[Rfam]
RNA sequence: UGUGGCACUCUAAGAUUGUGCCACAUUAUCACUUGAAAAUUUAAAAAUUUAUAUAAUUUUUUUGGUGAUGAUGUGGUAUAAUCUUAUAGUGUCAC
Numbered sequence: 001u002g003u004g005g006c007a008c009u010c011u012a013a014g015a016u017u018g019u020g021c022c023a024c025a026u027u028a029u030c031a032c033u034u035g036a037a038a039a040u041u042u043a044a045a046a047a048u049u050u051a052u053a054u055a056a057u058u059u060u061u062u063u064g065g066u067g068a069u070g071a072u073g074u075g076g077u078a079u080a081a082u083c084u085u086a087u088a089g090u091g092u093c094a095c
Stems, first nucleotide, its partner, number of pairs: 003094007012085022035062005041056001
RNA: MIR8675 microRNA precursor family
Organism: Gossypium australe